[Rfam]
RNA sequence: AAUAACGUAACGCUGAAUUUUCCGCAAGGAAGAGCGGGGGAACCAAAGCGGCGCGCAUGUAGGCGACCGCAGGGGUGAAUCCAUUUGAAUGGUAGGGAGAUCUCGACUCCCGAAUCCGACAGCUAACCUCGUAAGCGUUCAUCGAGAGAUAAG
Numbered sequence: 001a002a003u004a005a006c007g008u009a010a011c012g013c014u015g016a017a018u019u020u021u022c023c024g025c026a027a028g029g030a031a032g033a034g035c036g037g038g039g040g041a042a043c044c045a046a047a048g049c050g051g052c053g054c055g056c057a058u059g060u061a062g063g064c065g066a067c068c069g070c071a072g073g074g075g076u077g078a079a080u081c082c083a084u085u086u087g088a089a090u091g092g093u094a095g096g097g098a099g100a101u102c103u104c105g106a107c108u109c110c111c112g113a114a115u116c117c118g119a120c121a122g123c124u125a126a127c128c129u130c131g132u133a134a135g136c137g138u139u140c141a142u143c144g145a146g147a148g149a150u151a152a153g
Stems, first nucleotide, its partner, number of pairs: 011137004018033005034132006044072001073117003081092004095111004